[Rfam]
RNA sequence: AAAACGGCCCUUUUCAGGGCCACAAAUCCACAAUAACGAUGUGAUG
Numbered sequence: 001a002a003a004a005c006g007g008c009c010c011u012u013u014u015c016a017g018g019g020c021c022a023c024a025a026a027u028c029c030a031c032a033a034u035a036a037c038g039a040u041g042u043g044a045u046g
Stems, first nucleotide, its partner, number of pairs: 006021006

Rfam assigns this 46-nucleotide RNA from Eptatretus burgeri to the family "Histone 3' UTR stem-loop".
The mRNAs of metazoan histone genes lack a poly-A tail. 3' end processing occurs at a site between a highly conserved stem-loop (modelled by this family) and a purine rich region around 20 nts downstream (the histone downstream element, or HDE).
The source organism's lineage runs through Eukaryota, Metazoa, Deuterostomia, Chordata and Eptatretus.
It is annotated as a cis-regulatory element.
Gene Ontology term of the family: mRNA 3'-end processing by stem-loop binding and cleavage.